[Rfam]
RNA: Mammalian CPEB3 ribozyme
RNA sequence: AGAGGUUGCAAGUUCAACAGCAGAACCGCUCACCAUGUGGCCCUGUCAGAUUCCAGUGAAUCUGUGAUUUCUCUU
Numbered sequence: 001a002g003a004g005g006u007u008g009c010a011a012g013u014u015c016a017a018c019a020g021c022a023g024a025a026c027c028g029c030u031c032a033c034c035a036u037g038u039g040g041c042c043c044u045g046u047c048a049g050a051u052u053c054c055a056g057u058g059a060a061u062c063u064g065u066g067a068u069u070u071c072u073c074u075u
Base pairs, nucleotide, nucleotide: 012042014040015039016038019075020074022072023071024070025069027037028036047064048063049062050061051060052059053058